[Rfam]
RNA sequence: UGAUCGGGAGGUUUCUGGUGGGACAGAAACCAUGAAUGGAUCGUAAUCAACCUGUUUCAAAUGGACGUGCUGCCGGGGCCCGACGGCAGGCGCG
Numbered sequence: 001u002g003a004u005c006g007g008g009a010g011g012u013u014u015c016u017g018g019u020g021g022g023a024c025a026g027a028a029a030c031c032a033u034g035a036a037u038g039g040a041u042c043g044u045a046a047u048c049a050a051c052c053u054g055u056u057u058c059a060a061a062u063g064g065a066c067g068u069g070c071u072g073c074c075g076g077g078g079c080c081c082g083a084c085g086g087c088a089g090g091c092g093c094g
Base pairs, nucleotide, nucleotide: 001043002042003041004040005039010031011030012029013028014027015026016025017024066094067093068092069091070090071088072087073086074085075084

Rfam assigns this 94-nucleotide RNA sequence from Thalassovita gelatinovora to the family "Rhodo-rpoB RNA".
Pairs were carried over by alignment from the consensus structure, which is taken from published work.
The family's RNA type in Rfam is cis-regulatory element.
Lineage of the source: Bacteria > Pseudomonadota > Rhodobacterales > Roseobacteraceae > Thalassovita.
It scores 88 bits against the family's covariance model.